[Rfam]
RNA sequence: GCCGGGCGUUGUGGCGAGCGCCUGUAAACCAGCUUCUUGGUGGCUUCACUCAGAGAACGGGCUGAGUCGCAGAUCAACUUUCGCUGGUUGGGCUGCGUCGAAGUGUUCGUCUGUGUCAAGCAUUGCGUGCAACAGAGGAUAGGAACAGGAGUGUUCCAGUUCUCGGUUGUCUAAGCAGUCGCGUAACGCCACAGGACCGAAAGGUAGCAUGGAAAAGCGACGGCGCGGUGACAGUGGCCAGAUCGCGGAUACGAGUAGUUCGCCAGUGUUAGCUGUGGCAACAUUCUCGGACCUGAGUGUUA
Numbered sequence: 001g002c003c004g005g006g007c008g009u010u011g012u013g014g015c016g017a018g019c020g021c022c023u024g025u026a027a028a029c030c031a032g033c034u035u036c037u038u039g040g041u042g043g044c045u046u047c048a049c050u051c052a053g054a055g056a057a058c059g060g061g062c063u064g065a066g067u068c069g070c071a072g073a074u075c076a077a078c079u080u081u082c083g084c085u086g087g088u089u090g091g092g093c094u095g096c097g098u099c100g101a102a103g104u105g106u107u108c109g110u111c112u113g114u115g116u117c118a119a120g121c122a123u124u125g126c127g128u129g130c131a132a133c134a135g136a137g138g139a140u141a142g143g144a145a146c147a148g149g150a151g152u153g154u155u156c157c158a159g160u161u162c163u164c165g166g167u168u169g170u171c172u173a174a175g176c177a178g179u180c181g182c183g184u185a186a187c188g189c190c191a192c193a194g195g196a197c198c199g200a201a202a203g204g205u206a207g208c209a210u211g212g213a214a215a216a217g218c219g220a221c222g223g224c225g226c227g228g229u230g231a232c233a234g235u236g237g238c239c240a241g242a243u244c245g246c247g248g249a250u251a252c253g254a255g256u257a258g259u260u261c262g263c264c265a266g267u268g269u270u271a272g273c274u275g276u277g278g279c280a281a282c283a284u285u286c287u288c289g290g291a292c293c294u295g296a297g298u299g300u301u302a
Stems, first nucleotide, its partner, number of pairs: 001044003004023007028041003047299007058289004066279007078272002082268007090260001092259005098253001103252008111241002115238004120232001121230008130169004135164006142157006171175001178221005189212003196205003